[Rfam]
Shown here is a 134-nucleotide sequence from Odocoileus virginianus, a member of the family "Small nucleolar RNA SNORA42/SNORA80 family".
Rfam 15.1 lists 1,535 matches to the family in 183 species.
Lineage of the source: Eukaryota > Metazoa > Boreoeutheria > Cervidae > Odocoileus virginianus.
From the family's description: The members of this family belong to the H/ACA class of snoRNAs that guide the sites of modification of uridines to pseudouridines. Human ACA42 (SNORA42) was cloned from HeLa cells by immunoprecipitation with anti-GAR1 antibody. Its is predicted to guide the pseudouridylation of residues U109 and U572 of 18S rRNA. ACA42 shares the same host gene with ACA26, ACA46, ACA50. This family also includes mammalian snoRNA ACA67 (SNORA80) which was identified by computational screening and its expression in mouse experimentally verified by Northern blot and primer extension analysis. ACA67 is proposed to guide the pseudouridylation of the same 18S rRNA residues as ACA42.
For this family Rfam cites "A computational screen for mammalian pseudouridylation guide H/ACA RNAs" (Schattner et al., RNA, 2006).
Rfam classes the family as an H/ACA-box small nucleolar RNA.

RNA sequence: GCAUGGUAAUGGAUUUAUGGCAGGUCCUCCUUGGUGGGCCUCUCAUAGUGUACCCAUGCCAGAGAAAACAGCCUCGAACCAUUGCCCAGUCUCUUCACCUGUGGGCUGUGAGCACUGAAAGCGGUUGUACAGUG
Numbered sequence: 001g002c003a004u005g006g007u008a009a010u011g012g013a014u015u016u017a018u019g020g021c022a023g024g025u026c027c028u029c030c031u032u033g034g035u036g037g038g039c040c041u042c043u044c045a046u047a048g049u050g051u052a053c054c055c056a057u058g059c060c061a062g063a064g065a066a067a068a069c070a071g072c073c074u075c076g077a078a079c080c081a082u083u084g085c086c087c088a089g090u091c092u093c094u095u096c097a098c099c100u101g102u103g104g105g106c107u108g109u110g111a112g113c114a115c116u117g118a119a120a121g122c123g124g125u126u127g128u129a130c131a132g133u134g
Stems, first nucleotide, its partner, number of pairs: 001059004005054004015048006022041003025037002069127005080117002085112001087108006